This 106-nucleotide sequence from Sporolactobacillus laevolacticus belongs to the Rfam family "SAM riboswitch aptamer (S box leader)". NCBI's taxonomy places the organism under Bacteria, Bacillati, Caryophanales, Sporolactobacillus, Sporolactobacillus laevolacticus.
Nucleotides: 106
Base pairs, nucleotide, nucleotide: 001106002105003104004103005102006101007100008099013041015040016039017038021031022030023029025075026074027073028072042067043066044065045064047063048062050059051058071098076095077094078093079092080091081090
Number, partner (000 for none) and nucleotide at each position: 001106u002105u003104c004103u005102u006101a007100u008099c009000a010000a011000g012000a013041g014000a015040g016039g017038c018000g019000g020000a021031g022030g023029g024000a025075c026074c027073g028072g029023c030022c031021c032000u033000g034000u035000g036000a037000a038017g039016c040015c041013c042067g043066a044065c045064a046000a047063c048062c049000a050059g051058c052000a053000u054000a055000a056000a057000c058051g059050c060000a061000u062048g063047g064045u065044g066043u067042u068000a069000a070000u071098u072028c073027c074026g075025g076095c077094a078093g079092a080091u081090u082000c083000g084000u085000g086000u087000u088000u089000g090081g091080g092079u093078c094077u095076g096000a097000g098071a099008g100007a101006u102005a103004a104003g105002a106001g